[Rfam]
RNA sequence: AUAUGAGAAGAUAAAAAAUGUAAUAAAUAAAAAAGUAUCAUGUCUUGGUUUUUGUAAUCAUGCUAGCAGAGUACACACAGGAAGAAAAGUAACUGCACUGGAUUGUAAAGACUGGGGUGGACCUCUUUCUUAAUAUCCAGUGUCCUUUGUCUUAAGAUUUGGUGCAAUACAU
Numbered sequence: 001a002u003a004u005g006a007g008a009a010g011a012u013a014a015a016a017a018a019u020g021u022a023a024u025a026a027a028u029a030a031a032a033a034a035g036u037a038u039c040a041u042g043u044c045u046u047g048g049u050u051u052u053u054g055u056a057a058u059c060a061u062g063c064u065a066g067c068a069g070a071g072u073a074c075a076c077a078c079a080g081g082a083a084g085a086a087a088a089g090u091a092a093c094u095g096c097a098c099u100g101g102a103u104u105g106u107a108a109a110g111a112c113u114g115g116g117g118u119g120g121a122c123c124u125c126u127u128u129c130u131u132a133a134u135a136u137c138c139a140g141u142g143u144c145c146u147u148u149g150u151c152u153u154a155a156g157a158u159u160u161g162g163u164g165c166a167a168u169a170c171a172u
Base pairs, nucleotide, nucleotide: 019070021068024065025064031058034052035051037049038048039047040046094166095165096164097163098162099161100160101159102158114143116141118139119138120137121136
Small nucleolar RNA SNORA81: a 172-nucleotide sequence from Propithecus coquereli.
For this family Rfam cites "A novel experimental approach for systematic identification of box H/ACA snoRNAs from eukaryotes" (Gu et al., Nucleic Acids Res, 2005).
By type it is an H/ACA-box small nucleolar RNA.
Pairs were carried over by alignment from the consensus structure, which was predicted with WAR.